RNA sequence: AUACCUUUCUCGGCUUUUUGGCUAAGAUCAAGUGUAGUAUCUGUUCUGUUCAGUUUGAUAGCUGAACUGGUGGACAUUGUCCACCAUGCUAUCUCACUAAUCUUUCUGGGUGGAGUGGCCAACGGGGGCUUGCUCCCAGGUUGCUCUCGCUUGUCCUUGGUAUUGCACUACCGCCAAGGAUGAGCACACCAU
Numbered sequence: 001a002u003a004c005c006u007u008u009c010u011c012g013g014c015u016u017u018u019u020g021g022c023u024a025a026g027a028u029c030a031a032g033u034g035u036a037g038u039a040u041c042u043g044u045u046c047u048g049u050u051c052a053g054u055u056u057g058a059u060a061g062c063u064g065a066a067c068u069g070g071u072g073g074a075c076a077u078u079g080u081c082c083a084c085c086a087u088g089c090u091a092u093c094u095c096a097c098u099a100a101u102c103u104u105u106c107u108g109g110g111u112g113g114a115g116u117g118g119c120c121a122a123c124g125g126g127g128g129c130u131u132g133c134u135c136c137c138a139g140g141u142u143g144c145u146c147u148c149g150c151u152u153g154u155c156c157u158u159g160g161u162a163u164u165g166c167a168c169u170a171c172c173g174c175c176a177a178g179g180a181u182g183a184g185c186a187c188a189c190c191a192u
Stems, first nucleotide, its partner, number of pairs: 008027003012023004048067006069085007113146008125136004149185006156178006

A member of the RNA family "U2 spliceosomal RNA" from Tetradesmus obliquus, 192 nucleotides long. The family is grouped with related families in Rfam's "U2 clan". It scores 156 bits against the family's covariance model. The organism belongs to Tetradesmus, within Eukaryota. Rfam links the family to the GO terms U2 snRNP, pre-mRNA branch point binding and mRNA branch site recognition. The base pairs follow the family's consensus structure, which is taken from published work.